[Rfam]
RNA: PhotoRC-II RNA
RNA sequence: UAAUCUUUUGUAACUCCCCUCCAACCGAGACCUAUAGGGAGUAUAAAGCACGUCUCUCAUACCUUGCCUAAGGGUGGCAAGGAAUAGUAACUCCA
Numbered sequence: 001u002a003a004u005c006u007u008u009u010g011u012a013a014c015u016c017c018c019c020u021c022c023a024a025c026c027g028a029g030a031c032c033u034a035u036a037g038g039g040a041g042u043a044u045a046a047a048g049c050a051c052g053u054c055u056c057u058c059a060u061a062c063c064u065u066g067c068c069u070a071a072g073g074g075u076g077g078c079a080a081g082g083a084a085u086a087g088u089a090a091c092u093c094c095a
Stems, first nucleotide, its partner, number of pairs: 014041005020036001027056005062082007